[Rfam]
The record is a 78-nucleotide sequence from Eumeta japonica, which matches "mir-981 microRNA precursor family" in Rfam. The family's consensus secondary structure was predicted with RNAalifold. For this family Rfam cites "Cloning, characterization, and expression of microRNAs from the Asian malaria mosquito, Anopheles stephensi" (Mead and Tu, BMC Genomics, 2008).
RNA sequence: CUUCACAUGAUUCGGGUUUCGGGACGACGUAACCGUGAACGUUUGGUUCGUUGUCGACGAAACCUGCAAAAUGUGGGG
Numbered sequence: 001c002u003u004c005a006c007a008u009g010a011u012u013c014g015g016g017u018u019u020c021g022g023g024a025c026g027a028c029g030u031a032a033c034c035g036u037g038a039a040c041g042u043u044u045g046g047u048u049c050g051u052u053g054u055c056g057a058c059g060a061a062a063c064c065u066g067c068a069a070a071a072u073g074u075g076g077g078g
Base pairs, nucleotide, nucleotide: 001078002077003076004075005074006073013066014065015064016063017062018061019060020059021058031048032047033046034045
It scores 65 bits against the family's covariance model. The source organism's lineage runs through Eukaryota, Altocrustacea, Pterygota, Panorpida and Eumeta.